[Rfam]
RNA sequence: UCCGAGAAGGGCAAACCCGUCGCAAGGCGGGGACGCAAAGCCACGGGGCCCGCUGAGAUCUCCGCGGGUCGGCCGGGUUACCGAAG
Numbered sequence: 001u002c003c004g005a006g007a008a009g010g011g012c013a014a015a016c017c018c019g020u021c022g023c024a025a026g027g028c029g030g031g032g033a034c035g036c037a038a039a040g041c042c043a044c045g046g047g048g049c050c051c052g053c054u055g056a057g058a059u060c061u062c063c064g065c066g067g068g069u070c071g072g073c074c075g076g077g078u079u080a081c082c083g084a085a086g
Base pairs, nucleotide, nucleotide: 001086003083004082011036012035016031017030018029019028020027021026034072039079040078041077042076044075045074046073047070048069049068050067051066052065053064
Shown here is an 86-nucleotide sequence from Egibacter rhizosphaerae, a member of the family "c-di-GMP-I-GGC riboswitch aptamer". The organism belongs to Egibacter, within Bacteria.